[Rfam]
RNA sequence: ACGCUGGCACCGCCGAAUCGCCUUCGGGCGAACCGGGGACCCAACCACUUUGGGGUGAAUCGGUCAGGCCUCGUGCCUGACCGUAGGGCAGCCUUGAGCCCGAACCCGUCAGCUCACCCGGUAGGCGUCGAGGAUUGCAGGA
Numbered sequence: 001a002c003g004c005u006g007g008c009a010c011c012g013c014c015g016a017a018u019c020g021c022c023u024u025c026g027g028g029c030g031a032a033c034c035g036g037g038g039a040c041c042c043a044a045c046c047a048c049u050u051u052g053g054g055g056u057g058a059a060u061c062g063g064u065c066a067g068g069c070c071u072c073g074u075g076c077c078u079g080a081c082c083g084u085a086g087g088g089c090a091g092c093c094u095u096g097a098g099c100c101c102g103a104a105c106c107c108g109u110c111a112g113c114u115c116a117c118c119c120g121g122u123a124g125g126c127g128u129c130g131a132g133g134a135u136u137g138c139a140g141g142a
Stems, first nucleotide, its partner, number of pairs: 011127004018031003032122006042052002053107003061083009086101004
RNA: c-di-AMP riboswitch aptamer (ydaO/yuaA leader)